[Rfam]
RNA: PyrR binding site
RNA sequence: GGAACCUUUAAAUUGGUCCAGAGAGGCUAAAAAGGGUAUCGGAAAAAGAUAUGGGUUUCGUAUAUCUUUGAUUUUCCAUGGAAAAUAUACCUUCUGCCUCAGGCAGAAGGUUUUUUGUUU
Numbered sequence: 001g002g003a004a005c006c007u008u009u010a011a012a013u014u015g016g017u018c019c020a021g022a023g024a025g026g027c028u029a030a031a032a033a034g035g036g037u038a039u040c041g042g043a044a045a046a047a048g049a050u051a052u053g054g055g056u057u058u059c060g061u062a063u064a065u066c067u068u069u070g071a072u073u074u075u076c077c078a079u080g081g082a083a084a085a086u087a088u089a090c091c092u093u094c095u096g097c098c099u100c101a102g103g104c105a106g107a108a109g110g111u112u113u114u115u116u117g118u119u120u
Stems, first nucleotide, its partner, number of pairs: 003037001005035005013030006041073002045069009085115001087113001089111010